[Rfam]
RNA: mir-219 microRNA precursor family
RNA sequence: UGAUUGUCCAAACGCAAUUCUUGUAUCACUUGUCUGUAUCUAGGAGUUGUGGAUGGACAUCACG
Numbered sequence: 001u002g003a004u005u006g007u008c009c010a011a012a013c014g015c016a017a018u019u020c021u022u023g024u025a026u027c028a029c030u031u032g033u034c035u036g037u038a039u040c041u042a043g044g045a046g047u048u049g050u051g052g053a054u055g056g057a058c059a060u061c062a063c064g
Stems, first nucleotide, its partner, number of pairs: 001062004006058005013051011